[Rfam]
RNA sequence: CUCAUGGAACCUCACCGAGCCCGGUCGGUCUAAGUUGCGCGAGACCGCGUAAUACGACUGCCGGGCCUCGUUCAUUGCAAUGAACGACAGGGUGGGGCGGGAAACCGCCUCGCCUCCUGACUUUGGAAAGGUGGAACAUGCUGCAAGAU
Numbered sequence: 001c002u003c004a005u006g007g008a009a010c011c012u013c014a015c016c017g018a019g020c021c022c023g024g025u026c027g028g029u030c031u032a033a034g035u036u037g038c039g040c041g042a043g044a045c046c047g048c049g050u051a052a053u054a055c056g057a058c059u060g061c062c063g064g065g066c067c068u069c070g071u072u073c074a075u076u077g078c079a080a081u082g083a084a085c086g087a088c089a090g091g092g093u094g095g096g097g098c099g100g101g102a103a104a105c106c107g108c109c110u111c112g113c114c115u116c117c118u119g120a121c122u123u124u125g126g127a128a129a130g131g132u133g134g135a136a137c138a139u140g141c142u143g144c145a146a147g148a149u
Stems, first nucleotide, its partner, number of pairs: 003143002012134005019066006026060005034053008068087007090115011116126002
This 149-nucleotide RNA sequence from Saccharospirillum sp. MSK14-1 belongs to the Rfam family "Molybdenum/Tungsten riboswitch aptamer (Moco RNA motif)". A reference for the family is Regulski et al. (2008), "in molybdenum cofactor and tungsten cofactor metabolism", Mol Microbiol. The organism belongs to Saccharospirillum, within Bacteria.